[Rfam]
RNA sequence: AAAGGGGUUGCUGAAAACCUGAAAGAGUAGGCA
Dot-bracket structure: ..(((....[[[.....))).........]]].
RNA: DUF805b RNA
Organism: Parapedobacter composti